[Rfam]
RNA sequence: AUUGGUUUGGAAGUACAGGCCUAUUUAUGUUAGUCCAGUUUCAAGUAGUUCACCGUUUAGCGCUAUCCAUGAUACCUCUUCGUUGCGAAUUCCUUUAAAUAGUUACCAUAAGUAAAAAUCCGAAAUCAAACCGCAAACAAGCCUUAUGGCAAAUAAAUUAAUUUAAGGAAAUUCUAUGUCUAAUACAAUGACUGGUACAGUAAAAUGGUUCAACGAUGAUAAAGGUUUUGGUUUUAUCACUCCUAAAGACGGUAGCAAAGAUGUGUUCGUACAUUUCUCAGCAAUCCAAAGCGAUAGCUUCAAAUCUCUGAAAGAAGGUCAAGAAGUUUCAUUCUCAAUCGAGAAUGGUGCUAAAGGCCCAGCUGCUGCAAAUGUAAUCGGUCUAUAAUUUUAUACCUAAUUUCUUGGUAUUGCUUAUUAAGUAAUAACUAGAUA
Numbered sequence: 001a002u003u004g005g006u007u008u009g010g011a012a013g014u015a016c017a018g019g020c021c022u023a024u025u026u027a028u029g030u031u032a033g034u035c036c037a038g039u040u041u042c043a044a045g046u047a048g049u050u051c052a053c054c055g056u057u058u059a060g061c062g063c064u065a066u067c068c069a070u071g072a073u074a075c076c077u078c079u080u081c082g083u084u085g086c087g088a089a090u091u092c093c094u095u096u097a098a099a100u101a102g103u104u105a106c107c108a109u110a111a112g113u114a115a116a117a118a119u120c121c122g123a124a125a126u127c128a129a130a131c132c133g134c135a136a137a138c139a140a141g142c143c144u145u146a147u148g149g150c151a152a153a154u155a156a157a158u159u160a161a162u163u164u165a166a167g168g169a170a171a172u173u174c175u176a177u178g179u180c181u182a183a184u185a186c187a188a189u190g191a192c193u194g195g196u197a198c199a200g201u202a203a204a205a206u207g208g209u210u211c212a213a214c215g216a217u218g219a220u221a222a223a224g225g226u227u228u229u230g231g232u233u234u235u236a237u238c239a240c241u242c243c244u245a246a247a248g249a250c251g252g253u254a255g256c257a258a259a260g261a262u263g264u265g266u267u268c269g270u271a272c273a274u275u276u277c278u279c280a281g282c283a284a285u286c287c288a289a290a291g292c293g294a295u296a297g298c299u300u301c302a303a304a305u306c307u308c309u310g311a312a313a314g315a316a317g318g319u320c321a322a323g324a325a326g327u328u329u330c331a332u333u334c335u336c337a338a339u340c341g342a343g344a345a346u347g348g349u350g351c352u353a354a355a356g357g358c359c360c361a362g363c364u365g366c367u368g369c370a371a372a373u374g375u376a377a378u379c380g381g382u383c384u385a386u387a388a389u390u391u392u393a394u395a396c397c398u399a400a401u402u403u404c405u406u407g408g409u410a411u412u413g414c415u416u417a418u419u420a421a422g423u424a425a426u427a428a429c430u431a432g433a434u435a
Stems, first nucleotide, its partner, number of pairs: 004021006029243001032241003044235002048233001050231002053225002056222001062220001064218002067215001070212003074209003081178003085174001092168004097163002101126001103124001141150003180195003184191001248340002252336001260268002271329001273327004278323001281320001282318001285312001287310002290307001293306003346361003350358003362386001365383001366381003389399001404432002407429001409427007
Dot-bracket structure: ...((((((......)))))).......(..(((.........((..(.((.((.(.....(.((.(..(((.(((....(((.(......((((.((..(.(....................).)..............(((....)))...........)).)))).....).))).(((.(......).)))...........))))))..).)).).).))....)).)))...))).)....((..(.......((.....))..(.((((.(..((..(.((.(..(((........)))).)).).....).)..))))).)......)..)).....(((.(((...))))))(..((((..........))).)..)..(.........)....((.(.(((((((.....))))))).).))...
Source information: cspA thermoregulator: a 435-nucleotide RNA sequence from Proteus myxofaciens. The literature on the family includes a 2010 paper in Mol Cell by Giuliodori et al., "The cspA mRNA is a thermosensor that modulates translation of the cold-shock protein CspA". The family's consensus secondary structure is taken from published work.